This 98-nucleotide sequence from Salsuginibacillus halophilus belongs to the Rfam family "Purine riboswitch aptamer".

[Rfam]
RNA sequence: ACAUAAUUUCCUUUGAUCGUUCGUAUAUUCUUGAUAAUCGGAUCGAGAGUUUCUACCGGGCGCCGUAACGCCUGACUACGUGCGGUAUGCUUUUUUGU
Numbered sequence: 001a002c003a004u005a006a007u008u009u010c011c012u013u014u015g016a017u018c019g020u021u022c023g024u025a026u027a028u029u030c031u032u033g034a035u036a037a038u039c040g041g042a043u044c045g046a047g048a049g050u051u052u053c054u055a056c057c058g059g060g061c062g063c064c065g066u067a068a069c070g071c072c073u074g075a076c077u078a079c080g081u082g083c084g085g086u087a088u089g090c091u092u093u094u095u096u097g098u
Base pairs, nucleotide, nucleotide: 018084019083020082022080023079024078025077029048030047031046032045033044034043035042057074058073059072060071061070062069

It scores 69 bits against the family's covariance model. From the family's description: Riboswitches are metabolite binding domains within certain messenger RNAs that serve as precision sensors for their corresponding targets. The source organism's lineage runs through Bacteria, Bacilli, Caryophanales, Bacillaceae and Salsuginibacillus. Gene Ontology term of the family: purine nucleobase biosynthetic process. The base pairs follow the family's consensus structure, which is taken from published work.